Shown here is a 99-nucleotide sequence from Rhodamnia argentea, a member of the family "Small nucleolar RNA Z161/Z228".
RNA sequence: GAUUCAGAUGAUGAGUUUGGAUUGCAAAUUUCUCACGACGGUCGUCUGAGACACGACAGUGUCGAGCACUGAUGUAAUGAUCCAAUGUUCCUGAUGAUC
Number, nucleotide and partner (000 for none) at each position: 001g099002a098003u097004u096005c000006a000007g000008a000009u000010g000011a000012u000013g000014a000015g000016u000017u000018u000019g000020g000021a000022u000023u000024g000025c000026a000027a000028a000029u000030u000031u000032c000033u000034c000035a000036c000037g000038a000039c000040g000041g000042u000043c000044g000045u000046c000047u000048g000049a000050g000051a000052c061053a060054c059055g000056a000057c000058a000059g054060u053061g052062u000063c000064g000065a000066g000067c000068a000069c000070u000071g000072a000073u000074g000075u000076a000077a000078u000079g000080a000081u000082c000083c000084a000085a000086u000087g000088u000089u000090c000091c000092u000093g000094a000095u000096g004097a003098u002099c001

A reference for the family is Chen et al. (2003), "The high diversity of snoRNAs in plants: identification and comparative study of 120 snoRNA genes from Oryza sativa", Nucleic Acids Res. The base pairs follow the family's consensus structure, which was predicted with PFOLD.